Annotation
The family of this 149-nucleotide RNA sequence from Streptomyces caatingaensis is "c-di-AMP riboswitch aptamer (ydaO/yuaA leader)". This family represents a conserved RNA structure found upstream of the ydaO and yuaA genes in Bacillus subtilis and related genes in other bacteria. The ydaO/yuaA element is thought to act as a genetic 'off' switch for the ydaO and yuaA genes in its native state. Rfam links the family to the GO terms cyclic-di-AMP binding and regulation of gene expression. The organism belongs to Streptomyces, within Bacteria.
[Rfam]
RNA sequence: CGCGCGCCUUCGCCGAAUCCCGUGGACACCAGAGGGAACCGGGGAACCACCAACCCGUGGGGUGCAUCGGACGGUCCUCGGGCCGGCCCGUAGGAGACCUUCCUCCUCCGAACCCGUCAGCUAACCCGGUAGGCGAGAAGGAAGGAAAG
Numbered sequence: 001c002g003c004g005c006g007c008c009u010u011c012g013c014c015g016a017a018u019c020c021c022g023u024g025g026a027c028a029c030c031a032g033a034g035g036g037a038a039c040c041g042g043g044g045a046a047c048c049a050c051c052a053a054c055c056c057g058u059g060g061g062g063u064g065c066a067u068c069g070g071a072c073g074g075u076c077c078u079c080g081g082g083c084c085g086g087c088c089c090g091u092a093g094g095a096g097a098c099c100u101u102c103c104u105c106c107u108c109c110g111a112a113c114c115c116g117u118c119a120g121c122u123a124a125c126c127c128g129g130u131a132g133g134c135g136a137g138a139a140g141g142a143a144g145g146a147a148a149g
Stems, first nucleotide, its partner, number of pairs: 011135004018037003038130006048059002060115003068090003093109004